[Rfam]
RNA sequence: GGAUGUAUCUUUUCCUUUCUACAUCCGCUGCUG
Numbered sequence: 001g002g003a004u005g006u007a008u009c010u011u012u013u014c015c016u017u018u019c020u021a022c023a024u025c026c027g028c029u030g031c032u033g
Base pairs, nucleotide, nucleotide: 001026002025003024004023005022006021007020